[Rfam]
RNA sequence: GCUGCUCGAAUGAAUCACACACCUCUCCGUGGUGAGCAGCAGGCAACGAUCUAUUAUGAUCGGCGAAGAUGUGAUA
Numbered sequence: 001g002c003u004g005c006u007c008g009a010a011u012g013a014a015u016c017a018c019a020c021a022c023c024u025c026u027c028c029g030u031g032g033u034g035a036g037c038a039g040c041a042g043g044c045a046a047c048g049a050u051c052u053a054u055u056a057u058g059a060u061c062g063g064c065g066a067a068g069a070u071g072u073g074a075u076a
Stems, first nucleotide, its partner, number of pairs: 001040007021033003047062005
The record is a 76-nucleotide sequence from Blautia luti, which matches "HDV ribozyme from F. prausnitzii" in Rfam. A search with the family's covariance model found it, with a score of 82 bits. Its family is annotated with catalytic activity in the Gene Ontology. Lineage of the source: Bacteria > Clostridia > Lachnospirales > Lachnospiraceae > Blautia. Rfam 15.1 lists 3,803 matches to the family in 91 species. A reference for the family is Webb et al. (2009), "Widespread occurrence of self-cleaving ribozymes", Science.